[Rfam]
This 61-nucleotide RNA belongs to the Rfam family "Transposase-1 RNA".

RNA sequence: CGUUCAGAGGUUACCUCUAUCGUUACCUACGCUACGUAUGUAAUGGGAAUGUAACUGUUAA
Numbered sequence: 001c002g003u004u005c006a007g008a009g010g011u012u013a014c015c016u017c018u019a020u021c022g023u024u025a026c027c028u029a030c031g032c033u034a035c036g037u038a039u040g041u042a043a044u045g046g047g048a049a050u051g052u053a054a055c056u057g058u059u060a061a
Stems, first nucleotide, its partner, number of pairs: 009056006020046004027040001029037001

By type it is a small RNA.